The family of this 79-nucleotide RNA sequence from Sus scrofa is "Small nucleolar RNA SNORD111". Its family is annotated with nucleolus and RNA processing in the Gene Ontology. Rfam 15.1 lists 894 matches to the family in 541 species. The source organism's lineage runs through Eukaryota, Vertebrata, Dipnotetrapodomorpha, Boreoeutheria and Sus.
RNA sequence: CAGCCUGAAGUGAUGAUUCACAUUCAUGUCUCUUCUCUGAUAAAUUCUUGAAGAAAAGUCUGUGUAUCUGAUCAGGCUU
Dot-bracket structure: .((((.....................................................................)))).
For this family Rfam cites "Purified box C/D snoRNPs are able to reproduce site-specific 2'-O-methylation of target RNA in vitro" (Galardi et al., Mol Cell Biol, 2002). The family's consensus secondary structure was predicted with RNAalifold. By type it is a C/D-box small nucleolar RNA. It scores 73 bits against the family's covariance model.